[Rfam]
RNA: Lysine riboswitch aptamer
Organism: Radiobacillus deserti
RNA sequence: CGGUGAGGUAGAGGCGCGAAUAGCAAGAGUAUAUCGUGGGAGGAUGACAACGAAGAACACGAUGGAAAGGGUUAUUUGCCGAAGUAUAAGCUCAUGUCUAAGUGCUUAUAUUGGUAUUUACUUCGAAUAGGGGAAAUACUGUCAUGGCUAACAUGAAGAGCUACUGAUCGA
Numbered sequence: 001c002g003g004u005g006a007g008g009u010a011g012a013g014g015c016g017c018g019a020a021u022a023g024c025a026a027g028a029g030u031a032u033a034u035c036g037u038g039g040g041a042g043g044a045u046g047a048c049a050a051c052g053a054a055g056a057a058c059a060c061g062a063u064g065g066a067a068a069g070g071g072u073u074a075u076u077u078g079c080c081g082a083a084g085u086a087u088a089a090g091c092u093c094a095u096g097u098c099u100a101a102g103u104g105c106u107u108a109u110a111u112u113g114g115u116a117u118u119u120a121c122u123u124c125g126a127a128u129a130g131g132g133g134a135a136a137u138a139c140u141g142u143c144a145u146g147g148c149u150a151a152c153a154u155g156a157a158g159a160g161c162u163a164c165u166g167a168u169c170g171a
Stems, first nucleotide, its partner, number of pairs: 007165005016079009032064007083112009093102001113140007121132003142156005
Dot-bracket structure: ......(((((....(((((((((.......(((((((...................)))))))......)))))))))...(((((((((.(........).)))))))))(((((((.(((......))).))))))).(((((.....)))))....)))))......